[Rfam]
RNA sequence: GCAGCGCAUGUAAACAUCCUACACUCUCAGCUGUGAAUUUGUGGUGGCUGGGAGAAGGUUGUUUACACCUUCUGC
Numbered sequence: 001g002c003a004g005c006g007c008a009u010g011u012a013a014a015c016a017u018c019c020u021a022c023a024c025u026c027u028c029a030g031c032u033g034u035g036a037a038u039u040u041g042u043g044g045u046g047g048c049u050g051g052g053a054g055a056a057g058g059u060u061g062u063u064u065a066c067a068c069c070u071u072c073u074g075c
Base pairs, nucleotide, nucleotide: 002074003073004072006070009067010066011065012064013063014062015061016060018058019057020056024054025053026052027051028050029049030048031047032046